[Rfam]
RNA sequence: GCUGUACAGUGAUGACAACAUGGCUCCCUCUACUGAAAUCUGUUGAGGAAAACAACCAUAAAUGUUACCCUUUAUAUCUGAGUGUACAGC
Numbered sequence: 001g002c003u004g005u006a007c008a009g010u011g012a013u014g015a016c017a018a019c020a021u022g023g024c025u026c027c028c029u030c031u032a033c034u035g036a037a038a039u040c041u042g043u044u045g046a047g048g049a050a051a052a053c054a055a056c057c058a059u060a061a062a063u064g065u066u067a068c069c070c071u072u073u074a075u076a077u078c079u080g081a082g083u084g085u086a087c088a089g090c
Base pairs, nucleotide, nucleotide: 001090002089003088004087005086006085007084008083